[Rfam]
DUF805b RNA: a 32-nucleotide RNA sequence from Ancylomarina longa. Lineage of the source: Bacteria > Bacteroidia > Marinilabiliales > Marinifilaceae > Ancylomarina. Pairs were carried over by alignment from the consensus structure, which is taken from published work. Rfam classes the family as a cis-regulatory element.
RNA sequence: AACGUGGAACCCGAAAAACGAAAGAGUAGGUU
Dot-bracket structure: ..(((.....[[.....)))........]]..